Rfam assigns this 148-nucleotide RNA from Actinobacillus pleuropneumoniae to the family "Histidine operon leader". Rfam describes the family as follows. At least 6 amino acid operons are known to be regulated by attenuation. Its family is annotated with histidine biosynthetic process in the Gene Ontology. The family's RNA type in Rfam is cis-regulatory leader. The literature on the family includes a 1982 paper in Annu Rev Genet by Kolter and Yanofsky, "Attenuation in amino acid biosynthetic operons".

RNA sequence: UCAUCAUCACCAUCAUUCAAGCUGAUAUCUUUCGGGCAUUUGAGUGUGGUCGGAAGAUAGAAAAUCUUCCGAGUACGUAUAAAGCAAAAUCGCAUAUCGCAGCAAAAUACACAACCUCUCGGAAGGCAACUUUCGAGAGGUUUUUUAU
Numbered sequence: 001u002c003a004u005c006a007u008c009a010c011c012a013u014c015a016u017u018c019a020a021g022c023u024g025a026u027a028u029c030u031u032u033c034g035g036g037c038a039u040u041u042g043a044g045u046g047u048g049g050u051c052g053g054a055a056g057a058u059a060g061a062a063a064a065u066c067u068u069c070c071g072a073g074u075a076c077g078u079a080u081a082a083a084g085c086a087a088a089a090u091c092g093c094a095u096a097u098c099g100c101a102g103c104a105a106a107a108u109a110c111a112c113a114a115c116c117u118c119u120c121g122g123a124a125g126g127c128a129a130c131u132u133u134c135g136a137g138a139g140g141u142u143u144u145u146u147a148u
Base pairs, nucleotide, nucleotide: 008048009047010046011042012041017036018035021032050072051071052070053069054068055067056066057065111144113142114141115140116139117138118137119136120135121134122133123132124131125130